[Rfam]
Rfam assigns this 182-nucleotide RNA from Heyndrickxia oleronia to the family "SAM riboswitch aptamer (S box leader)". A search with the family's covariance model found it, with a score of 62 bits. The SAM riboswitch is found upstream of a number of genes which code for proteins involved in methionine or cysteine biosynthesis in Gram-positive bacteria.

RNA sequence: CUCUUAUCCCGAGCUGGUGGAGGGACAGGCCCGAUGAAACCCAGCAACCGGCAUUCUAUGUUAGAAUUUUUUAGUUAGAUCAUAACCGAUGUUUAUCGAUUGUGUAAUCUAAUUUUAAGAUUUUCUAAACUAGAAAGCAAUGGUGCUAACCUGACGCAAGGGAAUACCUUGAACGAUAAGAG
Numbered sequence: 001c002u003c004u005u006a007u008c009c010c011g012a013g014c015u016g017g018u019g020g021a022g023g024g025a026c027a028g029g030c031c032c033g034a035u036g037a038a039a040c041c042c043a044g045c046a047a048c049c050g051g052c053a054u055u056c057u058a059u060g061u062u063a064g065a066a067u068u069u070u071u072u073a074g075u076u077a078g079a080u081c082a083u084a085a086c087c088g089a090u091g092u093u094u095a096u097c098g099a100u101u102g103u104g105u106a107a108u109c110u111a112a113u114u115u116u117a118a119g120a121u122u123u124u125c126u127a128a129a130c131u132a133g134a135a136a137g138c139a140a141u142g143g144u145g146c147u148a149a150c151c152u153g154a155c156g157c158a159a160g161g162g163a164a165u166a167c168c169u170u171g172a173a174c175g176a177u178a179a180g181a182g
Base pairs, nucleotide, nucleotide: 001182002181003180004179005178006177007176008175013042016041017040018039022032023031024030026156029152043147044146045145046144048143049142051138052137157171158170159169160168161167